Overview
This 88-nucleotide RNA sequence belongs to the Rfam family "GA-cis RNA".
[Rfam]
RNA sequence: AAGAGGCGAAAAUAAAACGAACGAAGUUCGUUUCUUAAAAUAUUUUCGCCGACCAGCCGCUGACCGAAGGGAGGGGGCAUUACCGUAU
Numbered sequence: 001a002a003g004a005g006g007c008g009a010a011a012a013u014a015a016a017a018c019g020a021a022c023g024a025a026g027u028u029c030g031u032u033u034c035u036u037a038a039a040a041u042a043u044u045u046u047c048g049c050c051g052a053c054c055a056g057c058c059g060c061u062g063a064c065c066g067a068a069g070g071g072a073g074g075g076g077g078c079a080u081u082a083c084c085g086u087a088u
Stems, first nucleotide, its partner, number of pairs: 008047006016032006056078003060074002064070002
Rfam classes the family as a small RNA.